RNA sequence: GGAUCACCGGCUCAUCGCGACGGGUAUCGGGCUGGUAAAAAUAGACCGUCCUGCUCAGCGAUAAUGUCCUGUAUGCCUGGCGUACGCUCAUCGAAAACAUCUCUUUCACAUCCCUGACGAGCUCACGCUUUAUCGCUGGUUUU
Dot-bracket structure: .........................((..((................(.(.(((...(((....)))...))).).)..(.(..................).)..))..))....(((.(((............))).)))..
Numbered sequence: 001g002g003a004u005c006a007c008c009g010g011c012u013c014a015u016c017g018c019g020a021c022g023g024g025u026a027u028c029g030g031g032c033u034g035g036u037a038a039a040a041a042u043a044g045a046c047c048g049u050c051c052u053g054c055u056c057a058g059c060g061a062u063a064a065u066g067u068c069c070u071g072u073a074u075g076c077c078u079g080g081c082g083u084a085c086g087c088u089c090a091u092c093g094a095a096a097a098c099a100u101c102u103c104u105u106u107c108a109c110a111u112c113c114c115u116g117a118c119g120a121g122c123u124c125a126c127g128c129u130u131u132a133u134c135g136c137u138g139g140u141u142u143u
Stems, first nucleotide, its partner, number of pairs: 026111002030107002048077001050075001052073003058067003080103001082101001116141003120137003